[Rfam]
RNA sequence: UGUGUAGAGGUGAGAAAGUGUCAUGUUGUGUCUUGGUACAUUUCUUGCCACUCGCAGU
Numbered sequence: 001u002g003u004g005u006a007g008a009g010g011u012g013a014g015a016a017a018g019u020g021u022c023a024u025g026u027u028g029u030g031u032c033u034u035g036g037u038a039c040a041u042u043u044c045u046u047g048c049c050a051c052u053c054g055c056a057g058u
Stems, first nucleotide, its partner, number of pairs: 002055003006052002009049009020037003

mir-7398 microRNA precursor family: a 58-nucleotide RNA sequence from Sarcophilus harrisii.